[Rfam]
RNA sequence: UGCGCCGGAGCCGGGGUCUGAGUCCUGGCCGUGCGGGCGCGGAGCUCAUCGAGUUGCGCGUGCGGCCGGUACUCAACCGGCCCGGCCCUGGUCCCCCACU
Numbered sequence: 001u002g003c004g005c006c007g008g009a010g011c012c013g014g015g016g017u018c019u020g021a022g023u024c025c026u027g028g029c030c031g032u033g034c035g036g037g038c039g040c041g042g043a044g045c046u047c048a049u050c051g052a053g054u055u056g057c058g059c060g061u062g063c064g065g066c067c068g069g070u071a072c073u074c075a076a077c078c079g080g081c082c083c084g085g086c087c088c089u090g091g092u093c094c095c096c097c098a099c100u
Stems, first nucleotide, its partner, number of pairs: 002099001004097001007095002010092009019075005024069002027067008037057002045053003
A member of the RNA family "mir-1199 microRNA precursor family" from Mesocricetus auratus, 100 nucleotides long.
It scores 88 bits against the family's covariance model.
Gene Ontology terms of the family: miRNA-mediated post-transcriptional gene silencing and RISC complex.